[Rfam]
RNA sequence: GCCUCAUGCCUGAAAGGGCGACGUGGCAACACGGAGCGAGAAGUCAGCAGAAGCCAUAGUAGCCGCUUGUUCAGGGCGAAGGGU
Dot-bracket structure: ((.(..(((((....)))))..)..))................((....)).(((......(((..(.....).)))....)))
Rfam assigns this 84-nucleotide RNA from Oleiphilus messinensis to the family "Group II catalytic intron D1-D4-1". A reference for the family is Chu et al. (2001), "Control of branch-site choice by a group II intron", EMBO J. About the family: Group II introns are found in rRNA, tRNA and mRNA of organelles in fungi, plants and protists, and also in mRNA in bacteria. It scores 46 bits against the family's covariance model.